[Rfam]
The family of this 68-nucleotide RNA sequence from Lampropedia puyangensis is "ilvH RNA". The organism belongs to Lampropedia, within Bacteria. The match comes from Rfam's covariance-model search (68 bits).
RNA sequence: GAUGAAUCAAUUGCUUGCCAAAUUCUGCUGUUACCGCUGCAGGGUGAGGGCAACGAAAAGAGGAGUCU
Number, nucleotide and partner (000 for none) at each position: 001g000002a000003u000004g000005a000006a000007u000008c000009a000010a000011u056012u055013g054014c000015u053016u052017g051018c050019c049020a000021a000022a000023u044024u043025c042026u041027g040028c039029u000030g037031u036032u000033a000034c000035c000036g031037c030038u000039g028040c027041a026042g025043g024044g023045u000046g000047a000048g000049g019050g018051c017052a016053a015054c013055g012056a011057a000058a000059a000060g000061a000062g000063g000064a000065g000066u000067c000068u000